[Rfam]
RNA sequence: ACGAAUCUUUUUGCGGUCUGGGCUUGCUGUGUGUGUGUGAAUCUGGGAAGCCCUUACCCCAAAAAGCAUUUG
Numbered sequence: 001a002c003g004a005a006u007c008u009u010u011u012u013g014c015g016g017u018c019u020g021g022g023c024u025u026g027c028u029g030u031g032u033g034u035g036u037g038u039g040a041a042u043c044u045g046g047g048a049a050g051c052c053c054u055u056a057c058c059c060c061a062a063a064a065a066g067c068a069u070u071u072g
Base pairs, nucleotide, nucleotide: 007066008065009064010063011062012061013060015058016057017056020053021052022051023050025048027046028045
A member of the RNA family "mir-129 microRNA precursor family" from Muraenolepis orangiensis, 72 nucleotides long. For this family Rfam cites "Identification of tissue-specific microRNAs from mouse" (Lagos-Quintana et al., Curr Biol, 2002). The base pairs follow the family's consensus structure, which was predicted with RNAalifold. The source organism's lineage runs through Eukaryota, Osteoglossocephalai, Ctenosquamata, Muraenolepididae and Muraenolepis. It scores 80 bits against the family's covariance model.